[Rfam]
Background
A member of the RNA family "mir-253 microRNA precursor family" from Caenorhabditis briggsae, 98 nucleotides long. The family has 3 seed sequences and 7 matches in Rfam 15.1.

RNA sequence: UUUUUCGAGUUUCAGUCCUUCUCACACACCUCACUAACACUAACUACAGAUUUCUAGAUGUUAGUAGGCGUUGUGGGAAGGGCGGAGAUGACGAAUAC
Numbered sequence: 001u002u003u004u005u006c007g008a009g010u011u012u013c014a015g016u017c018c019u020u021c022u023c024a025c026a027c028a029c030c031u032c033a034c035u036a037a038c039a040c041u042a043a044c045u046a047c048a049g050a051u052u053u054c055u056a057g058a059u060g061u062u063a064g065u066a067g068g069c070g071u072u073g074u075g076g077g078a079a080g081g082g083c084g085g086a087g088a089u090g091a092c093g094a095a096u097a098c
Stems, first nucleotide, its partner, number of pairs: 002097001004095004009089005015083012027070001029068003033065007040057003

A reference for the family is Zisoulis et al. (2010), "Comprehensive discovery of endogenous Argonaute binding sites in Caenorhabditis elegans", Nat Struct Mol Biol.